The record is a 307-nucleotide RNA sequence from Vibrio parahaemolyticus, which matches "Vibrio alginolyticus sRNA 907" in Rfam. Rfam classes the family as a small RNA. From the family's description: Negative control of the adhesion process and negative control of key chemotaxis regulators translation. For this family Rfam cites "Identification and characterization of three Vibrio alginolyticus non-coding RNAs involved in adhesion, chemotaxis, and motility processes" (Huang et al., Front Cell Infect Microbiol, 2015). The base pairs follow the family's consensus structure, which was predicted with CMfinder.
[Rfam]
RNA sequence: UCAACCAAAAGUGCAGGAUUCAAUGUAUCCAAGCCUUCGGCUUGUAAGAGUAAGCCAUGCAAGGAAAGAUCUUGAAUCGUAGCGUUAAGUCUCAAAUCACGUUGUUCUAACUGAGCUGGAGCUUGGUAGAUGAUGCGUGAAAAGCGUCUUUUCUCCGUCAUAUUGCGCUCUCUAAGGCAUUUAAACAGAUUGAAUAGUAUAUCAAGAAGAACAAAAAGUGUUCGAAUGUUGUUUAAAAACUGUCGAGAACGCUACAGAGUUACGUAAGUGCACGGUCAUGUUUUUCACUGACCCAAUGACUCUCAAA
Numbered sequence: 001u002c003a004a005c006c007a008a009a010a011g012u013g014c015a016g017g018a019u020u021c022a023a024u025g026u027a028u029c030c031a032a033g034c035c036u037u038c039g040g041c042u043u044g045u046a047a048g049a050g051u052a053a054g055c056c057a058u059g060c061a062a063g064g065a066a067a068g069a070u071c072u073u074g075a076a077u078c079g080u081a082g083c084g085u086u087a088a089g090u091c092u093c094a095a096a097u098c099a100c101g102u103u104g105u106u107c108u109a110a111c112u113g114a115g116c117u118g119g120a121g122c123u124u125g126g127u128a129g130a131u132g133a134u135g136c137g138u139g140a141a142a143a144g145c146g147u148c149u150u151u152u153c154u155c156c157g158u159c160a161u162a163u164u165g166c167g168c169u170c171u172c173u174a175a176g177g178c179a180u181u182u183a184a185a186c187a188g189a190u191u192g193a194a195u196a197g198u199a200u201a202u203c204a205a206g207a208a209g210a211a212c213a214a215a216a217a218g219u220g221u222u223c224g225a226a227u228g229u230u231g232u233u234u235a236a237a238a239a240c241u242g243u244c245g246a247g248a249a250c251g252c253u254a255c256a257g258a259g260u261u262a263c264g265u266a267a268g269u270g271c272a273c274g275g276u277c278a279u280g281u282u283u284u285u286c287a288c289u290g291a292c293c294c295a296a297u298g299a300c301u302c303u304c305a306a307a
Stems, first nucleotide, its partner, number of pairs: 002079001004077001006040001009037003012033001016029002041063003045059002048056001085306002092299002097140006104134002106130003110127002115122002150296002157277001159275001164272006172247002175241002180237009190205004209223005251260003280292003